[Rfam]
RNA sequence: UAGCGAAGGUCCCAGCAGGGAGGUGAGAUCUCUGGAAAAUGAGACCUCUCUAACACAAAUUUGAAUCCUUCGCAGAAGAAUCGCCGAAUUAAAGGAUGCCCAAAUGUUUUGUAUUUGGAUCAUCUUCGAACCCUCGGCCACAUUUUC
Numbered sequence: 001u002a003g004c005g006a007a008g009g010u011c012c013c014a015g016c017a018g019g020g021a022g023g024u025g026a027g028a029u030c031u032c033u034g035g036a037a038a039a040u041g042a043g044a045c046c047u048c049u050c051u052a053a054c055a056c057a058a059a060u061u062u063g064a065a066u067c068c069u070u071c072g073c074a075g076a077a078g079a080a081u082c083g084c085c086g087a088a089u090u091a092a093a094g095g096a097u098g099c100c101c102a103a104a105u106g107u108u109u110u111g112u113a114u115u116u117g118g119a120u121c122a123u124c125u126u127c128g129a130a131c132c133c134u135c136g137g138c139c140a141c142a143u144u145u146u147c
Stems, first nucleotide, its partner, number of pairs: 003073007011020003025050003030043003083138005095124002098121001100118006